[Rfam]
RNA sequence: UUAGCUUAGGUCUGUGGUUGAAAGUCGAUGCCAGUCGCAGGCGAAACGAUCCACGUAAGGAGUCUAAAAUGGGCUCUGAGCAUGGUGCGGCUUAGAGGUAAAGUCCUGCCGCCCCCGGUAAAGAAAUUUGGGCGAGAGAAGUAGUAGUGAGGAGAUAACACUUAGUAGCGAACCUCCCAGCAGGCGAGUGUGGGGUCAAAGACCAGGUCGGCUAAGCAAA
Number, nucleotide and partner (000 for none) at each position: 001u220002u219003a000004g217005c216006u215007u214008a213009g212010g000011u000012c211013u210014g209015u205016g204017g203018u202019u201020g000021a000022a000023a000024g000025u000026c000027g000028a191029u190030g189031c041032c000033a092034g091035u090036c089037g088038c087039a086040g000041g031042c000043g000044a000045a000046a000047c000048g000049a000050u085051c084052c000053a000054c000055g000056u000057a000058a077059g076060g075061a000062g000063u072064c071065u000066a000067a000068a000069a000070u000071g064072g063073g000074c000075u060076c059077u058078g000079a000080g000081c000082a000083u198084g051085g050086u039087g038088c037089g036090g035091c034092u033093u000094a000095g000096a000097g000098g000099u000100a000101a000102a000103g000104u000105c184106c183107u182108g181109c180110c134111g133112c132113c131114c130115c000116c000117g000118g000119u000120a000121a000122a000123g000124a000125a000126a000127u000128u000129u000130g114131g113132g112133c111134g110135a000136g000137a000138g177139a000140a175141g174142u000143a000144g000145u000146a000147g169148u168149g000150a000151g000152g000153a162154g161155a000156u000157a000158a000159c000160a000161c154162u153163u000164a000165g000166u000167a000168g148169c147170g000171a000172a000173c000174c141175u140176c000177c138178c000179a000180g109181c108182a107183g106184g105185c000186g000187a000188g000189u030190g029191u028192g000193g000194g000195g000196u000197c000198a083199a000200a000201g019202a018203c017204c016205a015206g000207g000208u000209c014210g013211g012212c009213u008214a007215a006216g005217c004218a000219a002220a001
Rfam assigns this 220-nucleotide RNA to the family "raiA RNA". Rfam's curators put it in the seed alignment. By type it is a riboswitch.